A member of the RNA family "Plastid-clpP 5UTR RNA" from Gossypium raimondii, 70 nucleotides long.
Rfam classes the family as a cis-regulatory element.
Rfam's curators write: Plastid clpP is a non-coding RNA (ncRNA) recognised in plastids. It was found in the prime untranslated region (5UTR) of a protease complex subunit (clpP) in plastids, suggesting a posible cis-regulatory function.
[Rfam]
RNA sequence: AAUUUUGCUUAGAAGAAAAAAAGAGAAGCAGAUCUAUUCUAUACUCGAUAAGUAUCAAUACGCAAUAGGG
Number, nucleotide and partner (000 for none) at each position: 001a000002a000003u023004u022005u000006u020007g000008c000009u017010u016011a000012g000013a000014a000015g000016a010017a009018a000019a000020a006021a000022a004023g003024a000025g000026a000027a000028g000029c000030a000031g000032a000033u000034c000035u000036a000037u000038u000039c000040u000041a000042u000043a000044c069045u068046c000047g000048a000049u000050a000051a000052g061053u060054a059055u000056c000057a000058a000059u054060a053061c052062g000063c000064a000065a000066u000067a000068g045069g044070g000